[Rfam]
RNA: MIR168 microRNA precursor family
RNA sequence: GUUGCGACGAACUCUAAUUCGCUUGGUGCAGGUCGGAAACUACUUCGCCAUUGAUUCUGAUUGAUUCGGGGGCGAAUCGGGUCCCGCAUUGCAUCAACCGAAUCGAAGACCGCCAUGAAC
Dot-bracket structure: ............(...((((..(((((((((..(((.(.((.....................................)).).)))..)))))))))..))))...).............
Numbered sequence: 001g002u003u004g005c006g007a008c009g010a011a012c013u014c015u016a017a018u019u020c021g022c023u024u025g026g027u028g029c030a031g032g033u034c035g036g037a038a039a040c041u042a043c044u045u046c047g048c049c050a051u052u053g054a055u056u057c058u059g060a061u062u063g064a065u066u067c068g069g070g071g072g073c074g075a076a077u078c079g080g081g082u083c084c085c086g087c088a089u090u091g092c093a094u095c096a097a098c099c100g101a102a103u104c105g106a107a108g109a110c111c112g113c114c115a116u117g118a119a120c
Stems, first nucleotide, its partner, number of pairs: 013107001017103004023097009034086003038082001040080002